[Rfam]
RNA sequence: AACGUGCUCCGGGGUCGGUGAGAAUCCGAACCGGCGGUGACAGUCCGCGAACGCCCGUCAGGGUGCCGAUCCGGUGGAAUUCCGGAACCGACGGUGAUGCGGGAGGAGACUCCCGCUAGUCCGGAUGAGAGGAAGCACGGC
Numbered sequence: 001a002a003c004g005u006g007c008u009c010c011g012g013g014g015u016c017g018g019u020g021a022g023a024a025u026c027c028g029a030a031c032c033g034g035c036g037g038u039g040a041c042a043g044u045c046c047g048c049g050a051a052c053g054c055c056c057g058u059c060a061g062g063g064u065g066c067c068g069a070u071c072c073g074g075u076g077g078a079a080u081u082c083c084g085g086a087a088c089c090g091a092c093g094g095u096g097a098u099g100c101g102g103g104a105g106g107a108g109a110c111u112c113c114c115g116c117u118a119g120u121c122c123g124g125a126u127g128a129g130a131g132g133a134a135g136c137a138c139g140g141c
Stems, first nucleotide, its partner, number of pairs: 003139006009132002016028003032090002034048004043088002052065002070086005092123003
RNA: FMN riboswitch aptamer (RFN element)